Description:
A member of the RNA family "c-di-AMP riboswitch aptamer (ydaO/yuaA leader)" from Sanguibacter antarcticus, 162 nucleotides long. The match comes from Rfam's covariance-model search (64 bits). Pairs were carried over by alignment from the consensus structure. This family represents a conserved RNA structure found upstream of the ydaO and yuaA genes in Bacillus subtilis and related genes in other bacteria.

RNA sequence: CUCGAGGUCUCGACGAUCUUCUUGGCAGGGAUGGGGGACCCAGAUCUGGGCGCUGCACGCAGCGCCCUCGGGGUGAAGCCGCUCGGACUCGUCCGAACGGCCGGGCGCAGUUCUCCAGCCCGAACCCGACAGCUAACCUCGUAGGCGUCAUGGAGAGACAUG
Number, nucleotide and partner (000 for none) at each position: 001c029002u028003c000004g000005a000006g000007g000008u000009c000010u000011c000012g000013a000014c000015g000016a000017u000018c000019u000020u000021c000022u000023u000024g000025g000026c000027a000028g002029g001030g000031a142032u141033g140034g139035g138036g137037g000038a000039c000040c000041c070042a000043g000044a000045u000046c000047u000048g000049g000050g000051c000052g000053c000054u000055g000056c000057a000058c000059g000060c000061a000062g000063c000064g000065c000066c000067c000068u000069c000070g041071g127072g126073g125074u000075g000076a000077a000078g000079c100080c099081g098082c000083u000084c000085g000086g000087a000088c000089u000090c000091g000092u000093c000094c000095g000096a000097a000098c081099g080100g079101c000102c000103g121104g120105g119106c118107g000108c000109a000110g000111u000112u000113c000114u000115c000116c000117a000118g106119c105120c104121c103122g000123a000124a000125c073126c072127c071128g000129a000130c000131a000132g000133c000134u000135a000136a000137c036138c035139u034140c033141g032142u031143a000144g000145g000146c000147g000148u000149c000150a000151u000152g000153g000154a000155g000156a000157g000158a000159c000160a000161u000162g000